[Rfam]
RNA sequence: UUCAUAGCACGCGGGUGCCAAUAUUCAUGUCCUGUUCCAAAGGAGCGGGUGUAUCUAUUGGCUGAGAUUAUACCGCCUGAACUUGAUCGCUUUCAUGAGCGCGUAAGAAGUGCUAUUACACAAACA
Numbered sequence: 001u002u003c004a005u006a007g008c009a010c011g012c013g014g015g016u017g018c019c020a021a022u023a024u025u026c027a028u029g030u031c032c033u034g035u036u037c038c039a040a041a042g043g044a045g046c047g048g049g050u051g052u053a054u055c056u057a058u059u060g061g062c063u064g065a066g067a068u069u070a071u072a073c074c075g076c077c078u079g080a081a082c083u084u085g086a087u088c089g090c091u092u093u094c095a096u097g098a099g100c101g102c103g104u105a106a107g108a109a110g111u112g113c114u115a116u117u118a119c120a121c122a123a124a125c126a
Stems, first nucleotide, its partner, number of pairs: 006114005011076004016070001017062007082107004088101004
RNA: TPP riboswitch aptamer (THI element)